[Rfam]
RNA sequence: GGGCCAAAGUUAGGCAAAACUUUUGCAAAACUUGGAUUUAGGCUUUACCAAAGUUUAACCCAAGUUUCACCCAACUCUUGCCA
Numbered sequence: 001g002g003g004c005c006a007a008a009g010u011u012a013g014g015c016a017a018a019a020c021u022u023u024u025g026c027a028a029a030a031c032u033u034g035g036a037u038u039u040a041g042g043c044u045u046u047a048c049c050a051a052a053g054u055u056u057a058a059c060c061c062a063a064g065u066u067u068c069a070c071c072c073a074a075c076u077c078u079u080g081c082c083a
Stems, first nucleotide, its partner, number of pairs: 002082003006078001008076004013071002017067005025059001028056006
RNA: mir-266 microRNA precursor family